About this RNA: Shown here is a 282-nucleotide RNA, a member of the family "Metazoan signal recognition particle RNA". Rfam's curators put it in the seed alignment. Rfam describes the family as follows. The signal recognition particle (SRP) is a universally conserved ribonucleoprotein. It is involved in the co-translational targeting of proteins to membranes. The eukaryotic SRP consists of a 300-nucleotide 7S RNA and six proteins: SRPs 72, 68, 54, 19, 14, and 9. Archaeal SRP consists of a 7S RNA and homologues of the eukaryotic SRP19 and SRP54 proteins. Eukaryotic and archaeal 7S RNAs have very similar secondary structures, as represented by this family. Eight helical elements fold into the Alu and S domains, separated by a long linker region. The Alu domain is thought to mediate the peptide chain elongation retardation function of the SRP. The universally conserved helix which interacts with the SRP54 M domain mediates signal sequence recognition. In eukaryotes and archaea, the SRP19-helix 6 complex is thought to be involved in SRP assembly and stabilises helix 8 for SRP54 binding. The Signal Recognition Particle Database (SRPDB) provides compilations of SRP components, with phylogenetic data and structural illustrations. Many sequences below the threshold for this family are clearly closely related, but are most likely to be SRP RNA derived pseudogenes. The human genome in particular is known to contain a large amount of SRP RNA related sequence, including Alu repeats. While the threshold of this family is set high so as to minimise the number of hits to such regions, it is likely that some remain.
[Rfam]
Nucleotides: 282
Base pairs, nucleotide, nucleotide: 001045002044003043004023005022006021009018028042029041030040061282062281066275067274068273069272070271071270072269077268078267079266080265081264082263083262084261085260086259087258088257089256092254093253094252095251097249102247103246104245105244106243107242108241109237110236112235113234114233115232116231118228120226121225122224123223124222125221126220127166128165129164130163132161133160134159135158136157138155139154140153141152142151143150144149167173168172174219175218177216178215185210186209187208188207193202194201195200
Number, partner (000 for none) and nucleotide at each position: 001045g002044c003043c004023g005022g006021g007000u008000u009018c010000a011000g012000u013000g014000g015000c016000g017000c018009g019000c020000c021006c022005c023004u024000g025000u026000a027000a028042u029041c030040c031000a032000a033000g034000c035000u036000u037000c038000u039000g040030g041029g042028a043003g044002g045001c046000u047000g048000a049000g050000g051000c052000u053000g054000c055000g056000g057000a058000u059000c060000g061282c062281u063000u064000g065000a066275g067274c068273u069272c070271a071270g072269g073000g074000c075000u076000u077268c078267u079266g080265g081264g082263c083262u084261g085260c086259a087258g088257u089256g090000g091000a092254c093253u094252a095251u096000g097249c098000c099000g100000a101000u102247c103246a104245g105244g106243u107242g108241u109237c110236u111000g112235c113234g114233c115232u116231a117000a118228g119000u120226u121225c122224g123223g124222u125221a126220u127166c128165g129164a130163u131000a132161u133160g134159g135158u136157g137000c138155u139154c140153c141152u142151g143150g144149g145000g146000g147000a148000g149144c150143u151142c152141a153140g154139g155138a156000c157136c158135a159134c160133c161132a162000g163130g164129u165128u166127g167173u168172c169000u170000a171000a172168g173167a174219a175218g176000a177216g178215g179000u180000g181000a182000a183000c184000c185210g186209a187208c188207c189000c190000a191000g192000g193202u194201c195200g196000g197000a198000g199000a200195c201194g202193g203000a204000g205000c206000a207188g208187g209186u210185c211000a212000a213000a214000u215178c216177c217000c218175c219174u220126g221125u222124g223123c224122u225121g226120a227000u228118c229000a230000g231116u232115a233114g234113u235112g236110g237109g238000a239000u240000c241108g242107c243106a244105c245104c246103u247102g248000u249097g250000a251095a252094u253093a254092g255000a256089c257088a258087c259086u260085g261084c262083a263082g264081u265080u266079c267078a268077g269072c270071c271070u272069g273068a274067g275066c276000a277000a278000c279000a280000c281062a282061g
It is annotated as a non-coding RNA gene. A reference for the family is Batey et al. (2000), "Crystal structure of the ribonucleoprotein core of the signal recognition particle", Science. Clan: SRP clan.